Rfam assigns this 65-nucleotide sequence from Castanea mollissima to the family "Small nucleolar RNA Z105". Rfam classes the family as a C/D-box small nucleolar RNA. Taxonomically the source falls in Castanea (Eukaryota, Streptophytina, Gunneridae, Fagaceae).
RNA sequence: UAGGCAUAAUGAUGAAAAAUUAUCUGAUAAUUUUUGUGAUGAGAAUUACCUCCUACUCAUACUGA
Numbered sequence: 001u002a003g004g005c006a007u008a009a010u011g012a013u014g015a016a017a018a019a020u021u022a023u024c025u026g027a028u029a030a031u032u033u034u035u036g037u038g039a040u041g042a043g044a045a046u047u048a049c050c051u052c053c054u055a056c057u058c059a060u061a062c063u064g065a
Stems, first nucleotide, its partner, number of pairs: 006060002009057001023044002